RNA sequence: CCCUUUGAAACCGCACGCUUUUCGUCCUAUAUGUUGGGUGCCGGUUCGCCGGCUAUGGCAAUAAACGGGCGGUACAAUAAGCCUAUCGGACCCGGGGGCGGUACCCGGCGCCUCCACCAGGAACACCGCGCAGGACGCAAGACGCGCGAGUGCGGUGCUGCUGAUGGGGGCGAAACAGGAUCGACGAGGGUGUAAAAACCGUACUUUUGCCCGGCAUGAUACCACCGUUAUCGGGUCAAACUUGUAGUUGCAAACGACAACUAUGCAGAGGCACGUCUCGCUGCCUAAUGGCGGUGCGACAGCCUCACCGAAACUCCUAGUCGGUAUGCUCGGCUAGGCGGGGUUCGGAGGCACCUGGCAACAGAAGCCUCCACU
Number, nucleotide and partner (000 for none) at each position: 001c000002c000003c000004u000005u000006u000007g000008a000009a000010a000011c000012c000013g000014c000015a000016c000017g000018c000019u000020u000021u000022u000023c000024g000025u000026c000027c000028u000029a000030u000031a000032u000033g000034u000035u000036g000037g000038g000039u000040g053041c052042c051043g050044g049045u000046u000047c000048g000049c044050c043051g042052g041053c040054u000055a000056u000057g211058g210059c209060a208061a207062u000063a000064a000065a000066c000067g204068g000069g202070c201071g200072g199073u198074a000075c000076a000077a000078u000079a000080a000081g000082c190083c189084u188085a000086u187087c186088g185089g000090a000091c000092c108093c107094g106095g105096g104097g000098g000099c000100g000101g000102u000103a000104c096105c095106c094107g093108g092109c172110g171111c170112c169113u168114c167115c166116a000117c000118c000119a000120g000121g000122a000123a000124c000125a000126c000127c000128g000129c000130g000131c000132a000133g000134g000135a000136c000137g000138c000139a000140a000141g000142a000143c000144g000145c000146g000147c000148g000149a000150g000151u000152g000153c000154g000155g000156u000157g000158c000159u000160g000161c000162u000163g000164a000165u000166g115167g114168g113169g112170g111171c110172g109173a000174a000175a000176c000177a000178g000179g000180a000181u000182c000183g000184a000185c088186g087187a086188g084189g083190g082191u000192g000193u000194a000195a000196a000197a000198a073199c072200c071201g070202u069203a000204c067205u000206u000207u061208u060209g059210c058211c057212c227213g226214g225215c000216a000217u238218g237219a236220u000221a000222c234223c233224a000225c214226c213227g212228u000229u000230a000231u000232c000233g223234g222235g000236u219237c218238a217239a000240a000241c000242u000243u000244g000245u000246a000247g000248u000249u000250g000251c000252a000253a000254a000255c000256g000257a000258c000259a000260a000261c000262u000263a000264u000265g000266c000267a000268g000269a000270g000271g000272c000273a000274c000275g000276u000277c000278u000279c000280g000281c000282u000283g000284c000285c000286u000287a000288a000289u000290g000291g000292c000293g000294g000295u000296g000297c000298g000299a000300c000301a000302g000303c000304c000305u000306c000307a000308c000309c000310g000311a000312a000313a000314c000315u000316c000317c000318u000319a000320g000321u000322c000323g000324g000325u000326a000327u000328g000329c000330u000331c000332g000333g000334c000335u000336a000337g000338g000339c000340g000341g356342g355343g354344u353345u000346c000347g372348g371349a370350g369351g368352c367353a344354c343355c342356u341357g000358g000359c000360a000361a000362c000363a000364g000365a000366a000367g352368c351369c350370u349371c348372c347373a000374c000375u000
A member of the RNA family "Alphaproteobacteria transfer-messenger RNA" from Roseitalea porphyridii, 375 nucleotides long. Gene Ontology term of the family: RNA catabolic process. By type it is a non-coding RNA gene. A search with the family's covariance model found it, with a score of 301 bits. NCBI's taxonomy places the organism under Bacteria, Pseudomonadati, Pseudomonadota, Hyphomicrobiales, Roseitalea.